[Rfam]
RNA: c-di-AMP riboswitch aptamer (ydaO/yuaA leader)
Organism: Geodermatophilus sabuli
RNA sequence: GCCGGGGACCCACCGCAGCACUGGGGUGAAGCGCGCACGGCCACGUGGUCGGACGCGCCGGGCGCCUUCCCGCCCGAACCCGUCAGCUAACCCGGU
Numbered sequence: 001g002c003c004g005g006g007g008a009c010c011c012a013c014c015g016c017a018g019c020a021c022u023g024g025g026g027u028g029a030a031g032c033g034c035g036c037a038c039g040g041c042c043a044c045g046u047g048g049u050c051g052g053a054c055g056c057g058c059c060g061g062g063c064g065c066c067u068u069c070c071c072g073c074c075c076g077a078a079c080c081c082g083u084c085a086g087c088u089a090a091c092c093c094g095g096u
Base pairs, nucleotide, nucleotide: 001096002095003094004093005092006091011023012022024081025080026079032057033056034055035054060075061074062073063072